[Rfam]
RNA sequence: UCAAAGCUCCAUCUACAAAUGGAUAAGACUUCGGUUUUAGUGUGUGCGAGUUUUUGAAAACUAAAAAUAAGGAGUAAUAUCAAAUUUCUUGUUAUAUUAAGAGGAUUAGUAUUGCUUCUUA
Numbered sequence: 001u002c003a004a005a006g007c008u009c010c011a012u013c014u015a016c017a018a019a020u021g022g023a024u025a026a027g028a029c030u031u032c033g034g035u036u037u038u039a040g041u042g043u044g045u046g047c048g049a050g051u052u053u054u055u056g057a058a059a060a061c062u063a064a065a066a067a068u069a070a071g072g073a074g075u076a077a078u079a080u081c082a083a084a085u086u087u088c089u090u091g092u093u094a095u096a097u098u099a100a101g102a103g104g105a106u107u108a109g110u111a112u113u114g115c116u117u118c119u120u121a
Stems, first nucleotide, its partner, number of pairs: 008023005068121013082107002086103005
Plastid-psbA-1 3UTR RNA: a 121-nucleotide sequence from Manihot esculenta.
Plastid psbA-1 is a non-coding RNA (ncRNA) present in plastids. It was identified in inverted repeat sequences in the 3 prime untranslate region (3UTR) of photosystem II quinone-binding protein (psbA).
The family's consensus secondary structure was predicted with LocARNA.
The family is grouped with related families in Rfam's "Plastid-psbA 3UTR RNA clan".